[Rfam]
RNA sequence: AGGAAGUUUAGCUCUUUUGAUAUUUCUCUAGAAGGUUUCUCUUAAAGAGAAGCCCAA
Numbered sequence: 001a002g003g004a005a006g007u008u009u010a011g012c013u014c015u016u017u018u019g020a021u022a023u024u025u026c027u028c029u030a031g032a033a034g035g036u037u038u039c040u041c042u043u044a045a046a047g048a049g050a051a052g053c054c055c056a057a
Stems, first nucleotide, its partner, number of pairs: 034054008
This 57-nucleotide RNA from Sphaeramia orbicularis belongs to the Rfam family "U7 small nuclear RNA". Rfam's curators write: Animal histone pre-mRNAs are spliced by a different mechanism than nuclear pre-mRNAs and self-splicing introns. This processing involves the U7 snRNP, which contains only one RNA species: U7. The 5' end of U7 RNA is thought to base-pair to a conserved spacer element downstream of the cleavage site in histone pre-mRNA. This family contains a number of annotated U7 pseudogenes. The family's consensus secondary structure was predicted with PFOLD. Taxonomically the source falls in Sphaeramia (Eukaryota, Neopterygii, Osteoglossocephalai, Neoteleostei).